Shown here is a 117-nucleotide RNA sequence from Thalassospira sp. HJ, a member of the family "TPP riboswitch aptamer (THI element)". The family's consensus secondary structure is taken from published work. The match comes from Rfam's covariance-model search (75 bits). Rfam describes the family as follows. Vitamin B(1) in its active form thiamin pyrophosphate (TPP) is an essential coenzyme that is synthesised by coupling of pyrimidine and thiazole moieties in bacteria.

[Rfam]
RNA sequence: GCGCUCACCAAGGGGAGCCCCGACAGGGGGCUGAGAAACUGCCGUGUGAAAGCAGCGCAGUGACCCGUUGAACCUGAUCCAGUUCAUACUGGCGUAGGGACGGUGCGAACGCGGAUC
Numbered sequence: 001g002c003g004c005u006c007a008c009c010a011a012g013g014g015g016a017g018c019c020c021c022g023a024c025a026g027g028g029g030g031c032u033g034a035g036a037a038a039c040u041g042c043c044g045u046g047u048g049a050a051a052g053c054a055g056c057g058c059a060g061u062g063a064c065c066c067g068u069u070g071a072a073c074c075u076g077a078u079c080c081a082g083u084u085c086a087u088a089c090u091g092g093c094g095u096a097g098g099g100a101c102g103g104u105g106c107g108a109a110c111g112c113g114g115a116u117c
Stems, first nucleotide, its partner, number of pairs: 006105004012066003017031005038061005073098004079092004